RNA sequence: UUAAAGAUACUUACGUCCAGUCUCAGGUCGAGCGUUGAAGCGGAAGAAAUUUCGUGAGCCGUCGCAACCAAAGAGGGCGUCCCGACGAGAACCGUGGGGAGGUGGAAUUCCUAUGA
Numbered sequence: 001u002u003a004a005a006g007a008u009a010c011u012u013a014c015g016u017c018c019a020g021u022c023u024c025a026g027g028u029c030g031a032g033c034g035u036u037g038a039a040g041c042g043g044a045a046g047a048a049a050u051u052u053c054g055u056g057a058g059c060c061g062u063c064g065c066a067a068c069c070a071a072a073g074a075g076g077g078c079g080u081c082c083c084g085a086c087g088a089g090a091a092c093c094g095u096g097g098g099g100a101g102g103u104g105g106a107a108u109u110c111c112u113a114u115g116a
Stems, first nucleotide, its partner, number of pairs: 012113001013080006081099003085095003100112003
Shown here is a 116-nucleotide RNA sequence, a member of the family "pemK RNA". The sequence is in the family's curated seed alignment.